Small nucleolar RNA SNORD30: a 70-nucleotide sequence from Echeneis naucrates. Rfam links the family to the GO terms nucleolus and RNA processing. For this family Rfam cites "A mammalian gene with introns instead of exons generating stable RNA products" (Tycowski et al., Nature, 1996).
[Rfam]
RNA sequence: GGAAAUGAUGAGAUAUAUUUGGAAUCUCGUUCGUCUGAACUCCUGUUGAGAAAUGGAAUCUCUGAUAUCU
Numbered sequence: 001g002g003a004a005a006u007g008a009u010g011a012g013a014u015a016u017a018u019u020u021g022g023a024a025u026c027u028c029g030u031u032c033g034u035c036u037g038a039a040c041u042c043c044u045g046u047u048g049a050g051a052a053a054u055g056g057a058a059u060c061u062c063u064g065a066u067a068u069c070u
Stems, first nucleotide, its partner, number of pairs: 025051005032045002